[Rfam]
Nucleotides: 090
Base pairs, nucleotide, nucleotide: 012078013077015075016074017073018072019071020070027063028062029061030060032058033057034056035055036054
Number, partner (000 for none) and nucleotide at each position: 001000a002000a003000g004000g005000g006000u007000u008000a009000u010000u011000g012078a013077c014000c015075u016074a017073g018072c019071c020070u021000c022000u023000c024000c025000u026000u027063g028062g029061c030060u031000u032058u033057g034056u035055c036054u037000g038000u039000g040000u041000c042000u043000u044000a045000c046000g047000a048000u049000g050000u051000u052000u053000c054036a055035g056034a057033c058032a059000u060030a061029g062028c063027c064000u065000g066000a067000u068000a069000g070020a071019g072018g073017u074016u075015a076000c077013g078012u079000u080000u081000a082000g083000a084000c085000c086000c087000u088000u089000g090000a